Shown here is a 137-nucleotide RNA sequence from Trichechus manatus, a member of the family "Small nucleolar RNA SNORA58".
The source organism's lineage runs through Eukaryota, Gnathostomata, Euteleostomi, Mammalia and Trichechus manatus.
A reference for the family is Huttenhofer et al. (2001), "RNomics: an experimental approach that identifies 201 candidates for novel, small, non-messenger RNAs in mouse", EMBO J.
It scores 83 bits against the family's covariance model.
Its Rfam clan is "SNORA44 clan".
Rfam's curators write: ACA52 is a member of the H/ACA class of snoRNA that guide the sites of modification of uridines to pseudouridines.
RNA sequence: GUGCAUAUCAGUAGACCUCACCCUGCUAUGUCUUGGUAUGGUGAGGGGGACAGCAUAUGCCAGAGGAGACGUGGAGUGACUGCCAGAUACAGCCAGCAGAAUAGGUGGUUUGGCUGAACUGUCUUCCUCCCACAGCC
Numbered sequence: 001g002u003g004c005a006u007a008u009c010a011g012u013a014g015a016c017c018u019c020a021c022c023c024u025g026c027u028a029u030g031u032c033u034u035g036g037u038a039u040g041g042u043g044a045g046g047g048g049g050a051c052a053g054c055a056u057a058u059g060c061c062a063g064a065g066g067a068g069a070c071g072u073g074g075a076g077u078g079a080c081u082g083c084c085a086g087a088u089a090c091a092g093c094c095a096g097c098a099g100a101a102u103a104g105g106u107g108g109u110u111u112g113g114c115u116g117a118a119c120u121g122u123c124u125u126c127c128u129c130c131c132a133c134a135g136c137c
Stems, first nucleotide, its partner, number of pairs: 003060006016046007024038001073130004078126001082122002093113003096109002